[Rfam]
Shown here is a 272-nucleotide RNA sequence from Corymbia citriodora, a member of the family "RNase MRP". Pairs were carried over by alignment from the consensus structure, which is taken from published work. Taxonomically the source falls in Corymbia citriodora (Eukaryota, Tracheophyta, Gunneridae, Pentapetalae). RNase MRP is an enzymatically active ribonucleoprotein with two distinct roles in eukaryotes. In mitochondria it plays a direct role in the initiation of mitochondrial DNA replication. A search with the family's covariance model found it, with a score of 65 bits. The family's RNA type in Rfam is ribozyme.

RNA sequence: CACCCACUGAAUGGAGUGAAUGGGUCAAAGCCCAGCCUUGCGCUGGGAUCUGGGCUCAGGAAAGCCCCCGGGCCGUGAUCUGCAGAGAUGCAGCCUCGAGAACGAGGAGAGACUUCGUCAGACGGGAGUUCCAUCCCACCGGUGGGAUGAGGCUGAGACUUGUGCGGAGCCUCUGUGGACUCUUGUCCGAAGUAGCAUGGGCCGACCGUCACAGUCAUUCACUGGGCCCUACAUCAUAGGGCAAACUGAACGGGGCUUACACUUCAGUGGUU
Numbered sequence: 001c002a003c004c005c006a007c008u009g010a011a012u013g014g015a016g017u018g019a020a021u022g023g024g025u026c027a028a029a030g031c032c033c034a035g036c037c038u039u040g041c042g043c044u045g046g047g048a049u050c051u052g053g054g055c056u057c058a059g060g061a062a063a064g065c066c067c068c069c070g071g072g073c074c075g076u077g078a079u080c081u082g083c084a085g086a087g088a089u090g091c092a093g094c095c096u097c098g099a100g101a102a103c104g105a106g107g108a109g110a111g112a113c114u115u116c117g118u119c120a121g122a123c124g125g126g127a128g129u130u131c132c133a134u135c136c137c138a139c140c141g142g143u144g145g146g147a148u149g150a151g152g153c154u155g156a157g158a159c160u161u162g163u164g165c166g167g168a169g170c171c172u173c174u175g176u177g178g179a180c181u182c183u184u185g186u187c188c189g190a191a192g193u194a195g196c197a198u199g200g201g202c203c204g205a206c207c208g209u210c211a212c213a214g215u216c217a218u219u220c221a222c223u224g225g226g227c228c229c230u231a232c233a234u235c236a237u238a239g240g241g242c243a244a245a246c247u248g249a250a251c252g253g254g255g256c257u258u259a260c261a262c263u264u265c266a267g268u269g270g271u272u
Base pairs, nucleotide, nucleotide: 002272004270005269006268007267008266009265010264011263015223016222017221018220019219022057023056024055032046033045034044035043036042062258063257064256066255067254068253069252081092082091083090084089094107095106096105097104098103128196129195130194137192140189141188142187147184149182150172151171152170153169226242227241228240229239230238231237